[Rfam]
RNA: Bacterial large signal recognition particle RNA
Nucleotides: 263
Base pairs, nucleotide, nucleotide: 001263002262003261004260005259006258008056009055010054011029012028013027014026017023018022033053034052035051036050037049062255063254064253065252066251068249070247071246072245073244075242077241078240079239080238082236083234084233085232089227090226093224094223095222096221097220098219101217102216103214104213105212112208113207114206115205116204117203118202119201120197121196122195123194124193125192126188127187129186130185131184132183133182135178136177137176138175139174145170146169147168148167153162154161155160
Number, partner (000 for none) and nucleotide at each position: 001263c002262c003261g004260u005259g006258c007000a008056g009055c010054c011029g012028g013027g014026g015000a016000a017023u018022u019000g020000g021000c022018g023017g024000g025000g026014c027013c028012c029011u030000g031000u032000a033053c034052c035051u036050a037049c038000a039000a040000u041000c042000c043000g044000c045000c046000a047000u048000a049037g050036u051035a052034g053033g054010g055009g056008u057000g058000a059000u060000a061000u062255c063254c064253u065252g066251c067000c068249u069000c070247g071246g072245g073244c074000u075242g076000u077241c078240c079239g080238g081000u082236c083234g084233g085232a086000a087000g088000c089227u090226g091000c092000c093224c094223u095222g096221c097220g098219u099000a100000a101217g102216c103214g104213g105212c106000g107000c108000u109000g110000a111000u112208g113207c114206c115205u116204g117203g118202g119201u120197c121196u122195u123194g124193c125192g126188c127187a128000a129186c130185a131184g132183g133182a134000a135178c136177c137176u138175g139174u140000g141000a142000a143000c144000c145170g146169u147168g148167u149000c150000a151000g152000g153162u154161u155160g156000g157000g158000a159000a160155c161154a162153a163000a164000g165000c166000a167148g168147c169146a170145c171000u172000a173000a174139g175138c176137g177136g178135g179000a180000c181000c182133u183132c184131c185130u186129g187127u188126g189000u190000g191000c192125c193124g194123c195122a196121a197120g198000g199000g200000u201119g202118c203117c204116u205115g206114g207113g208112c209000u210000g211000a212105g213104c214103u215000g216102g217101c218000u219098g220097c221096g222095c223094a224093g225000g226090u227089a228000a229000c230000g231000u232085u233084c234083c235000g236082g237000u238080c239079c240078g241077g242075c243000u244073g245072u246071u247070c248000a249068a250000a251066g252065c253064a254063g255062g256000a257000u258006g259005c260004a261003c262002g263001g